[Rfam]
RNA sequence: GGGCGCGUAGCUCAGUGGAAGAGCACCCGGCUUACAACCGGGGGGUCACAGGUUCGAACCCUGUCGUGCCCA
Numbered sequence: 001g002g003g004c005g006c007g008u009a010g011c012u013c014a015g016u017g018g019a020a021g022a023g024c025a026c027c028c029g030g031c032u033u034a035c036a037a038c039c040g041g042g043g044g045g046u047c048a049c050a051g052g053u054u055c056g057a058a059c060c061c062u063g064u065c066g067u068g069c070c071c072a
Stems, first nucleotide, its partner, number of pairs: 001071007010024004026042005048064005
Rfam assigns this 72-nucleotide RNA sequence from Acidothermus cellulolyticus to the family "tRNA". Gene Ontology term of the family: triplet codon-amino acid adaptor activity. A search with the family's covariance model found it, with a score of 72 bits. Lineage of the source: Bacteria > Actinomycetes > Acidothermaceae > Acidothermus > Acidothermus cellulolyticus.